[Rfam]
RNA sequence: AUAAAGGGCUUCUGCUGUGUUUAGCACAUGGGUUAAUUCGAUUUUCAGAUCUUUCUGUACGGAAUCGACAUCAAGAGAUUUCGAAAGCACAAUUUUUGCAGCUGGGACUGUCAGUGAUCUCGCGUCCAGGCGCCCCC
Number, nucleotide and partner (000 for none) at each position: 001a000002u000003a000004a000005a000006g000007g000008g088009c087010u086011u085012c000013u026014g025015c024016u023017g022018u000019g000020u000021u000022u017023a016024g015025c014026a013027c000028a058029u057030g056031g055032g054033u000034u000035a000036a050037u049038u048039c000040g000041a000042u000043u000044u000045u000046c000047a000048g038049a037050u036051c000052u000053u000054u032055c031056u030057g029058u028059a000060c083061g082062g081063a080064a079065u078066c077067g000068a000069c000070a000071u000072c000073a000074a000075g000076a000077g066078a065079u064080u063081u062082c061083g060084a000085a011086a010087g009088c008089a000090c000091a000092a000093u000094u000095u000096u000097u000098g000099c000100a000101g000102c000103u000104g000105g135106g134107a000108c132109u000110g131111u130112c129113a000114g127115u000116g126117a125118u124119c000120u000121c000122g000123c000124g118125u117126c116127c114128a000129g112130g111131c110132g108133c000134c106135c105136c000137c000
Shown here is a 137-nucleotide RNA from Geotrypetes seraphini, a member of the family "U11 spliceosomal RNA". The match comes from Rfam's covariance-model search (77 bits). By type it is a spliceosomal small nuclear RNA. NCBI's taxonomy places the organism under Eukaryota, Eumetazoa, Amphibia, Dermophiidae, Geotrypetes.